[Rfam]
RNA sequence: GGUUGUUCCGGUUUGAUCGGGAUACUCAUCAAAAUAAAACGAAACCGAGGAAGUUUCUCUUGUUAAUGGCGGGCCACAUAAAACCCUUAUGGGACUAAGCUGUAUAGCCGGUGGAUUACAAAGACGGAGAGCUCUCAAAUCCUAUUAGCUCGGAGUUUCAUCACAUCAUCGGGCAACCCCUUUU
Dot-bracket structure: ....................................................(((.((.(((((..((.....((((......(((....))).....(((....)))..))))....))..))))))))))....................................................
The record is a 184-nucleotide RNA sequence from Prevotella sp. CAG:487, which matches "Bacteroidales-1 6S-Bacteroidales RNA suggested" in Rfam. It is annotated as a small RNA. For this family Rfam cites "A high-resolution transcriptome map identifies small RNA regulation of metabolism in the gut microbe Bacteroides thetaiotaomicron" (Ryan et al., Nat Commun, 2020).